Rfam assigns this 111-nucleotide sequence from Ancylostoma duodenale to the family "SL2 RNA".
Pairs were carried over by alignment from the consensus structure, which is taken from published work.
This family represents SL2 RNA. SL2 RNA is involved in trans splicing in lower eukaryotes. Trans-splicing is a form of RNA processing. The acquisition of a spliced leader from a SL RNA is a intra-molecular reaction which precisely joins exons derived from separately transcribed RNAs.
By type it is a non-coding RNA gene.
RNA sequence: GGUUUUAACCCAGUAUCACAAGGUACUACGGGGAUUCUGACCUGCCAGGUGUGGCUGCGUCAAAAACCUCAAUUUUUGGACAGCCUUUCCGGGGAUAUCCGGGAGGGCAAA
Numbered sequence: 001g002g003u004u005u006u007a008a009c010c011c012a013g014u015a016u017c018a019c020a021a022g023g024u025a026c027u028a029c030g031g032g033g034a035u036u037c038u039g040a041c042c043u044g045c046c047a048g049g050u051g052u053g054g055c056u057g058c059g060u061c062a063a064a065a066a067c068c069u070c071a072a073u074u075u076u077u078g079g080a081c082a083g084c085c086u087u088u089c090c091g092g093g094g095a096u097a098u099c100c101g102g103g104a105g106g107g108c109a110a111a
Stems, first nucleotide, its partner, number of pairs: 007036002009032002013029002016025001038062004042057001044055003087107003093100002